[Rfam]
The family of this 89-nucleotide RNA is "GA-cis RNA". The family's consensus secondary structure is taken from published work. Rfam's curators put it in the seed alignment.
RNA sequence: AAAAAUAGGAAACAAAAUGAACGAAGUUCAUUUUCUAUAAAUGUUUUCGACGAAUAGCCGUCGACCGAAAGGCGGGGGCAAUACAUAUU
Numbered sequence: 001a002a003a004a005a006u007a008g009g010a011a012a013c014a015a016a017a018u019g020a021a022c023g024a025a026g027u028u029c030a031u032u033u034u035c036u037a038u039a040a041a042u043g044u045u046u047u048c049g050a051c052g053a054a055u056a057g058c059c060g061u062c063g064a065c066c067g068a069a070a071g072g073c074g075g076g077g078g079c080a081a082u083a084c085a086u087a088u089u
Stems, first nucleotide, its partner, number of pairs: 008048006016032006057079003061075002066071001